The record is a 52-nucleotide RNA sequence from Tranquillimonas alkanivorans, which matches "SAM/SAH riboswitch aptamer" in Rfam. The source organism's lineage runs through Bacteria, Pseudomonadati, Pseudomonadota, Alphaproteobacteria and Tranquillimonas. The match comes from Rfam's covariance-model search (53 bits).

RNA sequence: AGACCGUCACAACGGCUUCCUGGCGUGGCGGAAAACACAACCCAAUGGAGCA
Numbered sequence: 001a002g003a004c005c006g007u008c009a010c011a012a013c014g015g016c017u018u019c020c021u022g023g024c025g026u027g028g029c030g031g032a033a034a035a036c037a038c039a040a041c042c043c044a045a046u047g048g049a050g051c052a
Base pairs, nucleotide, nucleotide: 004031005030006029007028008027009026010025013022014021015051016050017049019048020047